[Rfam]
RNA sequence: ACGCGCGAAAGGAGGUGGUCCAAGCAAUGGUUGAUUGUAGGACUCGCGAGGUGGCUGUCCGCUAGUCGCCGUUCCGCCUCGGACCGCCGCCCCCGGGCGGCGGAGCCGGUCGCGACGGUGACCGGCGAAUACCAGGCAGUUACCCGGUCCCCGGACCGAUGGACCCGUCCUGUCCAUCACCCCGCCACCCGGCGGGAAGGUCCGGGGAUCGUUCUUU
Numbered sequence: 001a002c003g004c005g006c007g008a009a010a011g012g013a014g015g016u017g018g019u020c021c022a023a024g025c026a027a028u029g030g031u032u033g034a035u036u037g038u039a040g041g042a043c044u045c046g047c048g049a050g051g052u053g054g055c056u057g058u059c060c061g062c063u064a065g066u067c068g069c070c071g072u073u074c075c076g077c078c079u080c081g082g083a084c085c086g087c088c089g090c091c092c093c094c095g096g097g098c099g100g101c102g103g104a105g106c107c108g109g110u111c112g113c114g115a116c117g118g119u120g121a122c123c124g125g126c127g128a129a130u131a132c133c134a135g136g137c138a139g140u141u142a143c144c145c146g147g148u149c150c151c152c153g154g155a156c157c158g159a160u161g162g163a164c165c166c167g168u169c170c171u172g173u174c175c176a177u178c179a180c181c182c183c184g185c186c187a188c189c190c191g192g193c194g195g196g197a198a199g200g201u202c203c204g205g206g207g208a209u210c211g212u213u214c215u216u217u
Stems, first nucleotide, its partner, number of pairs: 014059006060127004065122002068119004075114003145211013159177006
Background:
Shown here is a 217-nucleotide RNA sequence from Actinomadura meyerae, a member of the family "Actinobacteria sRNA Ms_IGR-5". The pairing is the family consensus, mapped onto this sequence. Rfam classes the family as a small RNA.